[Rfam]
RNA sequence: GCCACAUGAUGAUCUUGUAGAUGGCAUUAGCACUAUGUGCAAAGAUGACCUAUUAUCUAUCACCCUUGACUGAUGGCU
Numbered sequence: 001g002c003c004a005c006a007u008g009a010u011g012a013u014c015u016u017g018u019a020g021a022u023g024g025c026a027u028u029a030g031c032a033c034u035a036u037g038u039g040c041a042a043a044g045a046u047g048a049c050c051u052a053u054u055a056u057c058u059a060u061c062a063c064c065c066u067u068g069a070c071u072g073a074u075g076g077c078u
Base pairs, nucleotide, nucleotide: 001077002076003075004074030040031039032038033037